[Rfam]
RNA sequence: AGCUCAUCCAGAGGGACUGAGGGAACGGCCCGUUGAAGUCCCGGCAACCCUCCUGCCGACCGCGAGGUCACGGUGGGGAAGGUGCCAAUUCCGUCUUGCGGCGAAAUGCGUCGCGAGGAAGAUGAGGA
Numbered sequence: 001a002g003c004u005c006a007u008c009c010a011g012a013g014g015g016a017c018u019g020a021g022g023g024a025a026c027g028g029c030c031c032g033u034u035g036a037a038g039u040c041c042c043g044g045c046a047a048c049c050c051u052c053c054u055g056c057c058g059a060c061c062g063c064g065a066g067g068u069c070a071c072g073g074u075g076g077g078g079a080a081g082g083u084g085c086c087a088a089u090u091c092c093g094u095c096u097u098g099c100g101g102c103g104a105a106a107u108g109c110g111u112c113g114c115g116a117g118g119a120a121g122a123u124g125a126g127g128a
Stems, first nucleotide, its partner, number of pairs: 003126006013042005021031003025094004043086004048082002050078004090120001095117009

Notes:
A member of the RNA family "SAM riboswitch aptamer (S box leader)" from Streptomyces filamentosus, 128 nucleotides long. Rfam's curators put it in the seed alignment. Its Rfam clan is "SAM clan". The source organism's lineage runs through Bacteria, Bacillati, Actinomycetes, Kitasatosporales and Streptomyces filamentosus. Its family is annotated with regulation of gene expression in the Gene Ontology.